Shown here is a 103-nucleotide RNA from Virgibacillus indicus, a member of the family "SAM riboswitch aptamer (S box leader)".
The base pairs follow the family's consensus structure, which is taken from published work.
It scores 65 bits against the family's covariance model.
[Rfam]
RNA sequence: UAGCUAUUAAGAGUGACCGAGAGAAUUGGUUCGAUGACGUCACAGCAACCUACACUGUGUAAGGUGCUACAACCAACAAAGCAGCUGCUUUGAAUGAUAAAAA
Numbered sequence: 001u002a003g004c005u006a007u008u009a010a011g012a013g014u015g016a017c018c019g020a021g022a023g024a025a026u027u028g029g030u031u032c033g034a035u036g037a038c039g040u041c042a043c044a045g046c047a048a049c050c051u052a053c054a055c056u057g058u059g060u061a062a063g064g065u066g067c068u069a070c071a072a073c074c075a076a077c078a079a080a081g082c083a084g085c086u087g088c089u090u091u092g093a094a095u096g097a098u099a100a101a102a103a
Stems, first nucleotide, its partner, number of pairs: 001103001005099004013043005021032003026076004044068004049064002051061004072095001077092006